[Rfam]
RNA sequence: GCCCUUGGCUGCUCAGUAGUCAGUGUAGGAUCUGUCUGACAGUCUCACCAACAGCUACAUCUGAUUACUGGGUCACCUAGGGUGGCC
Number, nucleotide and partner (000 for none) at each position: 001g000002c000003c000004c000005u000006u000007g000008g000009c000010u000011g000012c000013u071014c070015a069016g068017u067018a066019g000020u064021c063022a062023g060024u059025g058026u057027a056028g055029g000030a000031u000032c054033u053034g052035u051036c000037u000038g000039a000040c000041a000042g000043u000044c000045u000046c000047a000048c000049c000050a000051a035052c034053a033054g032055c028056u027057a026058c025059a024060u023061c000062u022063g021064a020065u000066u018067a017068c016069u015070g014071g013072g000073u000074c000075a000076c000077c000078u000079a000080g000081g000082g000083u000084g000085g000086c000087c000

Rfam assigns this 87-nucleotide sequence from Dryobates pubescens to the family "mir-221 microRNA precursor family". Rfam links the family to the GO terms miRNA-mediated post-transcriptional gene silencing and RISC complex. NCBI's taxonomy places the organism under Eukaryota, Euteleostomi, Theropoda, Coraciimorphae, Dryobates. Pairs were carried over by alignment from the consensus structure, which was predicted with RNAalifold. For this family Rfam cites "MicroRNA profile of Marek's disease virus-transformed T-cell line MSB-1: predominance of virus-encoded microRNAs" (Yao et al., J Virol, 2008). Rfam 15.1 lists 1,797 matches to the family in 643 species.